[Rfam]
RNA sequence: UCUCGAUAAAGGCAAACCUGAUGAAAAUCAGCGACGCAAAGCUAUAGGGGCUACGGAGACAUGUUGCCACGCAUGAAUCUACGCCAGCCAGUUACCGAA
Numbered sequence: 001u002c003u004c005g006a007u008a009a010a011g012g013c014a015a016a017c018c019u020g021a022u023g024a025a026a027a028u029c030a031g032c033g034a035c036g037c038a039a040a041g042c043u044a045u046a047g048g049g050g051c052u053a054c055g056g057a058g059a060c061a062u063g064u065u066g067c068c069a070c071g072c073a074u075g076a077a078u079c080u081a082c083g084c085c086a087g088c089c090a091g092u093u094a095c096c097g098a099a
Stems, first nucleotide, its partner, number of pairs: 012037002018031005040093004047089002049085003056079002
The family of this 99-nucleotide sequence from Pontibacillus yanchengensis is "c-di-GMP-I riboswitch aptamer". The family's consensus secondary structure is taken from published work. It scores 68 bits against the family's covariance model.